[Rfam]
RNA sequence: UGCCUUCAUGUGUUGCCCUUUCAUUGUCUCUUUAGUGAUUGGGGUGUCAAAUAAGGCAUACAGUGACCCUUGUGGCUUUCUGCAAAACGAGUUUCAUGUGACUCCGUUUACAAGAUAAGCUGCAAGGACAUGC
Numbered sequence: 001u002g003c004c005u006u007c008a009u010g011u012g013u014u015g016c017c018c019u020u021u022c023a024u025u026g027u028c029u030c031u032u033u034a035g036u037g038a039u040u041g042g043g044g045u046g047u048c049a050a051a052u053a054a055g056g057c058a059u060a061c062a063g064u065g066a067c068c069c070u071u072g073u074g075g076c077u078u079u080c081u082g083c084a085a086a087a088c089g090a091g092u093u094u095c096a097u098g099u100g101a102c103u104c105c106g107u108u109u110a111c112a113a114g115a116u117a118a119g120c121u122g123c124a125a126g127g128a129c130a131u132g133c
Stems, first nucleotide, its partner, number of pairs: 002057005011049002014046004018041001021038005069126008086109001087107002091102002
RNA: Small nucleolar RNA SNORA13
Organism: Myripristis murdjan